[Rfam]
RNA sequence: UGGUGCCCAACCUUGAGGCAUGGAUACUGGGGAAUUCGCUAGGAAAGAGGCCUCUAGGCCUUCGGCCGAAAAAGGAGAAAGUCAGUUCAACAAAGACCACCACAGGAGCCUGCCACGCCGCUCUUAAGGUACAGUAGUGCCUAACUAUGGGACAAGAAUUAAGUAAGCAUAAAGUUUUUGUUAAGCAAUUAAAAGAAGCUUUAAAGACACAGGGAGUAAAGGUUAAGAGUAAAGAUCUUUUUAAUUUUUUUGACCUUAUUAAUGACACCUGUCCAU
Numbered sequence: 001u002g003g004u005g006c007c008c009a010a011c012c013u014u015g016a017g018g019c020a021u022g023g024a025u026a027c028u029g030g031g032g033a034a035u036u037c038g039c040u041a042g043g044a045a046a047g048a049g050g051c052c053u054c055u056a057g058g059c060c061u062u063c064g065g066c067c068g069a070a071a072a073a074g075g076a077g078a079a080a081g082u083c084a085g086u087u088c089a090a091c092a093a094a095g096a097c098c099a100c101c102a103c104a105g106g107a108g109c110c111u112g113c114c115a116c117g118c119c120g121c122u123c124u125u126a127a128g129g130u131a132c133a134g135u136a137g138u139g140c141c142u143a144a145c146u147a148u149g150g151g152a153c154a155a156g157a158a159u160u161a162a163g164u165a166a167g168c169a170u171a172a173a174g175u176u177u178u179u180g181u182u183a184a185g186c187a188a189u190u191a192a193a194a195g196a197a198g199c200u201u202u203a204a205a206g207a208c209a210c211a212g213g214g215a216g217u218a219a220a221g222g223u224u225a226a227g228a229g230u231a232a233a234g235a236u237c238u239u240u241u242u243a244a245u246u247u248u249u250u251u252g253a254c255c256u257u258a259u260u261a262a263u264g265a266c267a268c269c270u271g272u273c274c275a276u
Stems, first nucleotide, its partner, number of pairs: 006032003014026002036050002039047001086129002089125002098120001101117001105113001135155001137153002140151004160203003163199002210252007220238005261276001264273003

Rfam assigns this 276-nucleotide RNA sequence from Sciurus vulgaris to the family "Mason-Pfizer monkey virus packaging signal". A search with the family's covariance model found it, with a score of 150 bits. The family has 9 seed sequences and 2,921 matches in Rfam 15.1. Rfam classes the family as a cis-regulatory element. The organism belongs to Sciurus, within Eukaryota.